Shown here is a 132-nucleotide RNA from Heterocephalus glaber, a member of the family "Small nucleolar RNA SNORA38". The family's consensus secondary structure was predicted with RNAfold. The source organism's lineage runs through Eukaryota, Metazoa, Eutheria, Euarchontoglires and Heterocephalus. The family has 25 seed sequences and 628 matches in Rfam 15.1. ACA38 is a member of the H/ACA class of snoRNA that guide the sites of modification of uridines to pseudouridines.
RNA sequence: CCCUCCUACAAAGGCAUGUCUUUUGUUCCCAUGUUUUUGGACAUGUAAGAAUUGGAGGCAAGGAAAUGAGGAUUUGGAGAUAUCUGGGGCCAGCUUGUUCCCUGCAGACUCUGGAUGAGCUGUCCCACAUAA
Numbered sequence: 001c002c003c004u005c006c007u008a009c010a011a012a013g014g015c016a017u018g019u020c021u022u023u024u025g026u027u028c029c030c031a032u033g034u035u036u037u038u039g040g041a042c043a044u045g046u047a048a049g050a051a052u053u054g055g056a057g058g059c060a061a062g063g064a065a066a067u068g069a070g071g072a073u074u075u076g077g078a079g080a081u082a083u084c085u086g087g088g089g090c091c092a093g094c095u096u097g098u099u100c101c102c103u104g105c106a107g108a109c110u111c112u113g114g115a116u117g118a119g120c121u122g123u124c125c126c127a128c129a130u131a132a
Stems, first nucleotide, its partner, number of pairs: 002058005015045007024031002070125003074122001092110002095107004